[Rfam]
RNA: Nuclear RNase P
Organism: Sagittarius serpentarius
RNA sequence: UCCGGGGGAAGCUCACCGCCGAGGCCACCCACGGGGUGUCCGUCACCCACGCUCCGCCUCGGGGAAGGUCUGAGGGAAGGGCCGCCCGCGGCUCCAGCAGAGCCCCACCCACGAGGGGUGGGUGAGCCACCAGCAAGGGGGGGCGCCGCGUUCAAUUGGGCCGUUCCUGGGCAGGAGAAGCCGUAGUAGAGGUUCCGGGCGGGGCGGGGCCGUGACGUCACACGCCGUCUACCUACCCCGUCGCGGAACCCCGGUGGAUGCUCGUGGCCCCGCGGUGCUUUGAGACAGACUCACGGCCGGCGAUCGUUGAGUCCAAUGGGUGAGGUGGGGCACCGCCCUACAACCCAAUUCAGACUACUCUCCCCCGGA
Numbered sequence: 001u002c003c004g005g006g007g008g009a010a011g012c013u014c015a016c017c018g019c020c021g022a023g024g025c026c027a028c029c030c031a032c033g034g035g036g037u038g039u040c041c042g043u044c045a046c047c048c049a050c051g052c053u054c055c056g057c058c059u060c061g062g063g064g065a066a067g068g069u070c071u072g073a074g075g076g077a078a079g080g081g082c083c084g085c086c087c088g089c090g091g092c093u094c095c096a097g098c099a100g101a102g103c104c105c106c107a108c109c110c111a112c113g114a115g116g117g118g119u120g121g122g123u124g125a126g127c128c129a130c131c132a133g134c135a136a137g138g139g140g141g142g143g144c145g146c147c148g149c150g151u152u153c154a155a156u157u158g159g160g161c162c163g164u165u166c167c168u169g170g171g172c173a174g175g176a177g178a179a180g181c182c183g184u185a186g187u188a189g190a191g192g193u194u195c196c197g198g199g200c201g202g203g204g205c206g207g208g209g210c211c212g213u214g215a216c217g218u219c220a221c222a223c224g225c226c227g228u229c230u231a232c233c234u235a236c237c238c239c240g241u242c243g244c245g246g247a248a249c250c251c252c253g254g255u256g257g258a259u260g261c262u263c264g265u266g267g268c269c270c271c272g273c274g275g276u277g278c279u280u281u282g283a284g285a286c287a288g289a290c291u292c293a294c295g296g297c298c299g300g301c302g303a304u305c306g307u308u309g310a311g312u313c314c315a316a317u318g319g320g321u322g323a324g325g326u327g328g329g330g331c332a333c334c335g336c337c338c339u340a341c342a343a344c345c346c347a348a349u350u351c352a353g354a355c356u357a358c359u360c361u362c363c364c365c366c367g368g369a
Stems, first nucleotide, its partner, number of pairs: 001369004007363003012324006020061005034048005070353005080298004090104005105121006122294005128288001142279009325341007